Source information:
This 84-nucleotide RNA from Alicyclobacillus sp. SO9 belongs to the Rfam family "Group II catalytic intron D1-D4-1". The family has 237 seed sequences and 2,508 matches in Rfam 15.1.
RNA sequence: UAACCGUCAUCGAGAGAUGACGCUGAACCGGCAGGGGUCAGCAGAGGUCAUAGUACAGCGACAAGCGCUUGUCGCUGGAAGGAC
Numbered sequence: 001u002a003a004c005c006g007u008c009a010u011c012g013a014g015a016g017a018u019g020a021c022g023c024u025g026a027a028c029c030g031g032c033a034g035g036g037g038u039c040a041g042c043a044g045a046g047g048u049c050a051u052a053g054u055a056c057a058g059c060g061a062c063a064a065g066c067g068c069u070u071g072u073c074g075c076u077g078g079a080a081g082g083a084c
Stems, first nucleotide, its partner, number of pairs: 001025002005022007038045002047084003056077006
The match comes from Rfam's covariance-model search (67 bits).
The base pairs follow the family's consensus structure.